[Rfam]
RNA: Small nucleolar RNA Z159/U59
Organism: Ensete ventricosum
RNA sequence: GUUUCCGAGGAUGAUCGAGAUAAAAUAACUUUCGUUCUUCCGAGGUUACAUACGAUGCGGAAGAUUUUUGGAGACCUGAACUGAGGAAAU
Number, nucleotide and partner (000 for none) at each position: 001g000002u000003u088004u087005c086006c085007g000008a000009g000010g000011a000012u000013g000014a000015u000016c000017g000018a000019g000020a000021u000022a000023a000024a000025a000026u000027a000028a000029c000030u000031u000032u000033c000034g000035u000036u000037c000038u000039u000040c000041c000042g000043a000044g000045g000046u000047u000048a000049c000050a000051u000052a000053c000054g000055a000056u000057g000058c000059g000060g000061a000062a000063g000064a000065u000066u000067u000068u000069u000070g000071g000072a000073g000074a000075c000076c000077u000078g000079a000080a000081c000082u000083g000084a000085g006086g005087a004088a003089a000090u000